Annotation:
epsC RNA: a 113-nucleotide RNA from Bacillus sp. 165. The base pairs follow the family's consensus structure, which is taken from published work.
RNA sequence: UGGUGAUGUCUCCUUACCGUUAUCAACGGGGGCACUCGGUCACACUGUGGGUAUAGAGCAUACCUUAGACGCCAGUCGUCGGAAGUGGGGCGUGAGGAUGGGUUUGAUGCCCU
Numbered sequence: 001u002g003g004u005g006a007u008g009u010c011u012c013c014u015u016a017c018c019g020u021u022a023u024c025a026a027c028g029g030g031g032g033c034a035c036u037c038g039g040u041c042a043c044a045c046u047g048u049g050g051g052u053a054u055a056g057a058g059c060a061u062a063c064c065u066u067a068g069a070c071g072c073c074a075g076u077c078g079u080c081g082g083a084a085g086u087g088g089g090g091c092g093u094g095a096g097g098a099u100g101g102g103u104u105u106g107a108u109g110c111c112c113u
Stems, first nucleotide, its partner, number of pairs: 001019004007034007035096004039091003043087004049065006068080004100112004
Source information: The source organism's lineage runs through Bacteria, Bacillati, Caryophanales, Bacillaceae and Bacillus.